Notes: This 197-nucleotide sequence from Bacillus sp. FJAT-27986 belongs to the Rfam family "6S / SsrS RNA". It scores 76 bits against the family's covariance model. NCBI's taxonomy places the organism under Bacteria, Bacillota, Caryophanales, Bacillaceae, Bacillus.
RNA sequence: UACGAGCUACAUUGUACGUGAUGCAUAAUUUAAGUUUUAACCUUUAAGCUGUAAUAGGGAGUUUUAUUAUAAAGGCUGGAAUGACAAGCCUCUGUCUAUAUGACCUGGAGGACAAGCAGGAAAGCUUUUGCGAACACCCACUUGGAGAAGUGGUGGUUUAAAACUUUCUUAUAUGUAACGGCAAAAGUGGCUUAUAA
Numbered sequence: 001u002a003c004g005a006g007c008u009a010c011a012u013u014g015u016a017c018g019u020g021a022u023g024c025a026u027a028a029u030u031u032a033a034g035u036u037u038u039a040a041c042c043u044u045u046a047a048g049c050u051g052u053a054a055u056a057g058g059g060a061g062u063u064u065u066a067u068u069a070u071a072a073a074g075g076c077u078g079g080a081a082u083g084a085c086a087a088g089c090c091u092c093u094g095u096c097u098a099u100a101u102g103a104c105c106u107g108g109a110g111g112a113c114a115a116g117c118a119g120g121a122a123a124g125c126u127u128u129u130g131c132g133a134a135c136a137c138c139c140a141c142u143u144g145g146a147g148a149a150g151u152g153g154u155g156g157u158u159u160a161a162a163a164c165u166u167u168c169u170u171a172u173a174u175g176u177a178a179c180g181g182c183a184a185a186a187g188u189g190g191c192u193u194a195u196a197a
Stems, first nucleotide, its partner, number of pairs: 002195001004193007012184004017180003033165004038160003041156002057139003061135004071129007083117001089111005